[Rfam]
RNA sequence: GCGGGCUUGGAAUUAUGAUGCUGUGGGCCCGCAUCAGCGCGUCAAGCGGGUGAUCACGGGGAUCUCCAUCACACCCGCCGGUAUAGCCGCGCCACUACUAAAGUAGGCCGCCAAGAGAAGCCUGCAUUGCUCUUGGUGCUCCGAAUUUUAUAUGUAGUGCGUGCCGCACGCCGUGGAGGGGUGGGUCGUGUUGGACGGCCUAGAAGGUGCGGAACGCCG
Numbered sequence: 001g002c003g004g005g006c007u008u009g010g011a012a013u014u015a016u017g018a019u020g021c022u023g024u025g026g027g028c029c030c031g032c033a034u035c036a037g038c039g040c041g042u043c044a045a046g047c048g049g050g051u052g053a054u055c056a057c058g059g060g061g062a063u064c065u066c067c068a069u070c071a072c073a074c075c076c077g078c079c080g081g082u083a084u085a086g087c088c089g090c091g092c093c094a095c096u097a098c099u100a101a102a103g104u105a106g107g108c109c110g111c112c113a114a115g116a117g118a119a120g121c122c123u124g125c126a127u128u129g130c131u132c133u134u135g136g137u138g139c140u141c142c143g144a145a146u147u148u149u150a151u152a153u154g155u156a157g158u159g160c161g162u163g164c165c166g167c168a169c170g171c172c173g174u175g176g177a178g179g180g181g182u183g184g185g186u187c188g189u190g191u192u193g194g195a196c197g198g199c200c201u202a203g204a205a206g207g208u209g210c211g212g213a214a215c216g217c218c219g
Base pairs, nucleotide, nucleotide: 001032002031003030004029005028006027007026046078047077048076049075050074051073065177066176067175068174069173088163089162090161091160092159094158095157096156097155098154164212165211166210167209168208169207182202183201184200185199186198187197